[Rfam]
RNA: Small nucleolar RNA SNORD83
RNA sequence: GCCACAUGAUGAGCUGGUUAGCGGCAGCAGCCCCCGGGCCAUGGUGACCUGCUAUCUAUCACCCUUCUCUGAUGGCU
Numbered sequence: 001g002c003c004a005c006a007u008g009a010u011g012a013g014c015u016g017g018u019u020a021g022c023g024g025c026a027g028c029a030g031c032c033c034c035c036g037g038g039c040c041a042u043g044g045u046g047a048c049c050u051g052c053u054a055u056c057u058a059u060c061a062c063c064c065u066u067c068u069c070u071g072a073u074g075g076c077u
Stems, first nucleotide, its partner, number of pairs: 001076004030039003
Dot-bracket structure: ((((.........................(((....))).................................)))).